[Rfam]
Nucleotides: 115
Stems, first nucleotide, its partner, number of pairs: 010102001012100004018094002021091005027085004031080004036069003040065008
Number, partner (000 for none) and nucleotide at each position: 001000c002000g003000a004000c005000u006000c007000g008000c009000c010102g011000a012100c013099g014098a015097u016000g017000a018094g019093g020000u021091c022090u023089c024088c025087a026000g027085c028084c029083g030082c031080c032079c033078g034077a035000g036069g037068c038067g039000u040065c041064c042063u043062g044061a045060c046059a047058c048000a049000c050000c051000u052000u053000c054000c055000c056000c057000g058047g059046u060045g061044u062043c063042a064041g065040g066000c067038c068037g069036c070000a071000g072000u073000u074000c075000g076000g077034u078033c079032g080031g081000a082030g083029c084028g085027g086000a087025u088024g089023g090022a091021g092000a093019c094018c095000u096000g097015a098014u099013c100012g101000c102010c103000g104000g105000a106000c107000g108000u109000c110000g111000g112000u113000c114000c115000c
A member of the RNA family "mraW RNA" from Kineosporia babensis, 115 nucleotides long. Pairs were carried over by alignment from the consensus structure, which is taken from published work.